[Rfam]
mir-144 microRNA precursor family: a 77-nucleotide sequence from Petromyzon marinus. The base pairs follow the family's consensus structure, which was predicted with RNAalifold. Rfam's curators put it in the seed alignment.
RNA sequence: CGUCUGUGCAGGAUAUCAUACUAUACUGUAAAUCAAUGCUGAACCAUUACAGUAUAUAUGAUGUGCUGCGGAGGGCU
Numbered sequence: 001c002g003u004c005u006g007u008g009c010a011g012g013a014u015a016u017c018a019u020a021c022u023a024u025a026c027u028g029u030a031a032a033u034c035a036a037u038g039c040u041g042a043a044c045c046a047u048u049a050c051a052g053u054a055u056a057u058a059u060g061a062u063g064u065g066c067u068g069c070g071g072a073g074g075g076c077u
Stems, first nucleotide, its partner, number of pairs: 007070002010067002013064008022056009